[Rfam]
Nucleotides: 137
Stems, first nucleotide, its partner, number of pairs: 007064006015054002020051002022048001023045004028040004065109006112132001114135001118130003
Number, partner (000 for none) and nucleotide at each position: 001000u002000u003000u004000a005000a006000u007064u008063g009062c010061u011060u012059c013000u014000a015054g016053g017000g018000u019000u020051c021050c022048g023045g024044u025043u026042u027000u028040a029039g030038u031037u032000u033000u034000g035000a036000u037031g038030g039029c040028u041000c042026a043025a044024a045023c046000g047000u048022c049000u050021g051020g052000u053016c054015c055000g056000a057000g058000a059012g060011a061010g062009g063008c064007a065109a066108c067107c068106a069105g070104u071000c072000u073000u074000u075000a076000g077000u078000a079000u080000u081000u082000c083000g084000g085000c086000a087000a088000u089000u090000u091000u092000g093000u094000a095000g096000a097000a098000a099000c100000a101000c102000u103000a104070g105069c106068u107067g108066g109065u110000c111000a112132c113000a114135c115000g116000g117000c118130g119129g120128g121000a122000a123000a124000a125000a126000a127000g128120c129119c130118c131000g132112g133000g134000a135114g136000g137000u